[Rfam]
RNA sequence: ACGCCAACCCCGUGCUGCCGACUCAGACCCCGACAGCGCUGGGUCGGCAGCGCGGGGUUGGCGU
Numbered sequence: 001a002c003g004c005c006a007a008c009c010c011c012g013u014g015c016u017g018c019c020g021a022c023u024c025a026g027a028c029c030c031c032g033a034c035a036g037c038g039c040u041g042g043g044u045c046g047g048c049a050g051c052g053c054g055g056g057g058u059u060g061g062c063g064u
Stems, first nucleotide, its partner, number of pairs: 002063004007058020
About this RNA:
F6 TB sRNA: a 64-nucleotide RNA sequence. The literature on the family includes a 2009 paper in Mol Microbiol by Arnvig and Young, "Identification of small RNAs in Mycobacterium tuberculosis". It scores 46 bits against the family's covariance model. By type it is a small RNA.